[Rfam]
RNA sequence: CUGCAAAUAUUCUCACUGUUCUGAUUUUGUAAUAAUCAGGACAGAUUAAACAUUCUCUAUAUUAAGACCGUGCAUGUGUACCCAGACCUAGCACUUUCCCUAGGCUUGUUUUUUUUUUAAUGGUGUAUGAU
Numbered sequence: 001c002u003g004c005a006a007a008u009a010u011u012c013u014c015a016c017u018g019u020u021c022u023g024a025u026u027u028u029g030u031a032a033u034a035a036u037c038a039g040g041a042c043a044g045a046u047u048a049a050a051c052a053u054u055c056u057c058u059a060u061a062u063u064a065a066g067a068c069c070g071u072g073c074a075u076g077u078g079u080a081c082c083c084a085g086a087c088c089u090a091g092c093a094c095u096u097u098c099c100c101u102a103g104g105c106u107u108g109u110u111u112u113u114u115u116u117u118u119a120a121u122g123g124u125g126u127a128u129g130a131u
Base pairs, nucleotide, nucleotide: 003057016044017043018042019041020040021039022038023037024036025035026034067124068123069122070121082108084106085105087104088103089102090101091100